Bacterial large subunit ribosomal RNA: a 363-nucleotide part of an RNA from Pseudonocardia asaccharolytica. The match comes from Rfam's covariance-model search (2671 bits). NCBI's taxonomy places the organism under Bacteria, Bacillati, Pseudonocardiaceae, Pseudonocardia, Pseudonocardia asaccharolytica.

RNA sequence: CGAGUGAACUGUGGUCAAGGAACUCGGCAAAAUACCCCCGUAACUUCGGGAGAAGGGGGGCCGGAGGCGUUGAAGCCCCGCGCGGGCUAGGCGCAGCCGGUCGCAGAGACCAGGCCCAAGCGACUGUUUACUAAAAACACAGGUCCGUGCGAAGUCGCAAGACGAGGUAUACGGACUGACGCCUGCCCGGUGCUGGAACGUUAAGAGGACCCGUUAGCCCUCCGGGGCGACGCGGAGAAUUUAAGCGCCAGUAAACGGCGGUGGUAACUAUAACCAUCCUAAGGUAGCGAAAUUCCUUGUCGGGUAAGUUCCGACCUGCACGAAUGGCGUAACGACUUGGGCGCUGUCUCGACCACAGACUCG
Numbered sequence: 001c002g003a004g005u006g007a008a009c010u011g012u013g014g015u016c017a018a019g020g021a022a023c024u025c026g027g028c029a030a031a032a033u034a035c036c037c038c039c040g041u042a043a044c045u046u047c048g049g050g051a052g053a054a055g056g057g058g059g060g061c062c063g064g065a066g067g068c069g070u071u072g073a074a075g076c077c078c079c080g081c082g083c084g085g086g087c088u089a090g091g092c093g094c095a096g097c098c099g100g101u102c103g104c105a106g107a108g109a110c111c112a113g114g115c116c117c118a119a120g121c122g123a124c125u126g127u128u129u130a131c132u133a134a135a136a137a138c139a140c141a142g143g144u145c146c147g148u149g150c151g152a153a154g155u156c157g158c159a160a161g162a163c164g165a166g167g168u169a170u171a172c173g174g175a176c177u178g179a180c181g182c183c184u185g186c187c188c189g190g191u192g193c194u195g196g197a198a199c200g201u202u203a204a205g206a207g208g209a210c211c212c213g214u215u216a217g218c219c220c221u222c223c224g225g226g227g228c229g230a231c232g233c234g235g236a237g238a239a240u241u242u243a244a245g246c247g248c249c250a251g252u253a254a255a256c257g258g259c260g261g262u263g264g265u266a267a268c269u270a271u272a273a274c275c276a277u278c279c280u281a282a283g284g285u286a287g288c289g290a291a292a293u294u295c296c297u298u299g300u301c302g303g304g305u306a307a308g309u310u311c312c313g314a315c316c317u318g319c320a321c322g323a324a325u326g327g328c329g330u331a332a333c334g335a336c337u338u339g340g341g342c343g344c345u346g347u348c349u350c351g352a353c354c355a356c357a358g359a360c361u362c363g
Base pairs, nucleotide, nucleotide: 001363002362003361004360009358010357011356012355013354014353015352016351018349019348020347035059036058037057038056039055044049060101061100062099063098064097102106114342115341116340117339118338119337120336121334122333125139126138127137142177143176144175145174146173147172148171149170150167154163155162156161180329181328182327183326185259186258187257190256191255192252193251194250195249196248199247200246201245205241206240211235212234213233214232217228218227219226220225260278261277262276263275264274265273279283289316299315300314301313302312303311304310